[Rfam]
RNA: c-di-AMP riboswitch aptamer (ydaO/yuaA leader)
RNA sequence: CAUAAUUAAACGCUGAAUUCUGAAUGAUCAGAAACGGGGGAACCAAUAACAGGUUCAUCUAUGAAAAGGAUGAGUUUGUGGGGUGAAUCCUUAUGCUUGCUUCGCAAGCGCAUAGGUAGGGCCACUCUUACGCCCGAAUCCGACAGCUAACCUCGUAAGCGUACAAGAGGCGACAG
Numbered sequence: 001c002a003u004a005a006u007u008a009a010a011c012g013c014u015g016a017a018u019u020c021u022g023a024a025u026g027a028u029c030a031g032a033a034a035c036g037g038g039g040g041a042a043c044c045a046a047u048a049a050c051a052g053g054u055u056c057a058u059c060u061a062u063g064a065a066a067a068g069g070a071u072g073a074g075u076u077u078g079u080g081g082g083g084u085g086a087a088u089c090c091u092u093a094u095g096c097u098u099g100c101u102u103c104g105c106a107a108g109c110g111c112a113u114a115g116g117u118a119g120g121g122c123c124a125c126u127c128u129u130a131c132g133c134c135c136g137a138a139u140c141c142g143a144c145a146g147c148u149a150a151c152c153u154c155g156u157a158a159g160c161g162u163a164c165a166a167g168a169g170g171c172g173a174c175a176g
Stems, first nucleotide, its partner, number of pairs: 011161004018033005034156006044080002081141003089116003119135004